The family of this 72-nucleotide RNA sequence from Vigna angularis is "Small nucleolar RNA Z159/U59". NCBI's taxonomy places the organism under Eukaryota, Streptophyta, Streptophytina, Phaseoleae, Vigna angularis. It is annotated as a C/D-box small nucleolar RNA. The family's consensus secondary structure was predicted with PFOLD. A reference for the family is Chen et al. (2003), "The high diversity of snoRNAs in plants: identification and comparative study of 120 snoRNA genes from Oryza sativa", Nucleic Acids Res. Its Rfam clan is "SNORD59 clan".
[Rfam]
RNA sequence: GCCUCUGAGGAUGAUGAAACGUCUACUGAUUUUUCUAUGCGGAAAAUGUAUGGAGACCUGAACUGAAGAGGA
Numbered sequence: 001g002c003c004u005c006u007g008a009g010g011a012u013g014a015u016g017a018a019a020c021g022u023c024u025a026c027u028g029a030u031u032u033u034u035c036u037a038u039g040c041g042g043a044a045a046a047u048g049u050a051u052g053g054a055g056a057c058c059u060g061a062a063c064u065g066a067a068g069a070g071g072a
Stems, first nucleotide, its partner, number of pairs: 003070004